[Rfam]
RNA sequence: AGCUUUGCGCAGUGGCAGUAUCGUAGCCAAUGAGGUUUAUCCGAGGCGCGAUUAUUGCUAAUUGAAAACUUUUCAAAUGUGGUUUUAAAUUUUAUCUGUAACUUUCACAUUUAAUAAAUAUUGAGUGUCAA
Numbered sequence: 001a002g003c004u005u006u007g008c009g010c011a012g013u014g015g016c017a018g019u020a021u022c023g024u025a026g027c028c029a030a031u032g033a034g035g036u037u038u039a040u041c042c043g044a045g046g047c048g049c050g051a052u053u054a055u056u057g058c059u060a061a062u063u064g065a066a067a068a069c070u071u072u073u074c075a076a077a078u079g080u081g082g083u084u085u086u087a088a089a090u091u092u093u094a095u096c097u098g099u100a101a102c103u104u105u106c107a108c109a110u111u112u113a114a115u116a117a118a119u120a121u122u123g124a125g126u127g128u129c130a131a
Base pairs, nucleotide, nucleotide: 020052021051022050023049024048026047027046028045034042035041081129082128083127084125085124086123087122088121091118092117093116094115095114
A member of the RNA family "U4 spliceosomal RNA" from Lipotes vexillifer, 131 nucleotides long. Rfam's curators write: U4 small nuclear RNA (U4 snRNA) is a component of the major U2-dependent spliceosome. The organism belongs to Lipotes, within Eukaryota. A search with the family's covariance model found it, with a score of 84 bits. For this family Rfam cites "Mechanism of 5' splice site transfer for human spliceosome activation" (Charenton et al., Science, 2019). By type it is a spliceosomal small nuclear RNA.